[Rfam]
RNA sequence: GCCGGGGUCCACCGGGAAGGUGGCAGAGUGGUUGAAUGUACCUGACUCGAAAUCAGGCAGGCGUUUAUAGCGCCUCGGGGGUUCGAAUCCCCCCCUUCCCGCCAGAUCGAAGCGAAAGCCCGCGCAUCGUCGCGGGCUUUUCGUUUUUGCGCUGGUGGAAUUGUGGGAGGGA
Numbered sequence: 001g002c003c004g005g006g007g008u009c010c011a012c013c014g015g016g017a018a019g020g021u022g023g024c025a026g027a028g029u030g031g032u033u034g035a036a037u038g039u040a041c042c043u044g045a046c047u048c049g050a051a052a053u054c055a056g057g058c059a060g061g062c063g064u065u066u067a068u069a070g071c072g073c074c075u076c077g078g079g080g081g082u083u084c085g086a087a088u089c090c091c092c093c094c095c096u097u098c099c100c101g102c103c104a105g106a107u108c109g110a111a112g113c114g115a116a117a118g119c120c121c122g123c124g125c126a127u128c129g130u131c132g133c134g135g136g137c138u139u140u141u142c143g144u145u146u147u148u149g150c151g152c153u154g155g156u157g158g159a160a161u162u163g164u165g166g167g168a169g170g171g172a
Base pairs, nucleotide, nucleotide: 002078003077004076005075006074007073012026014024028071029070033067034066035065036064037063038062039061041057042056043055044054045053090169091167092166093165095163100114101113102112128157129156130155131154132153134152136150
RNA: Proteobacterial sRNA sX4
Organism: Xanthomonas boreopolis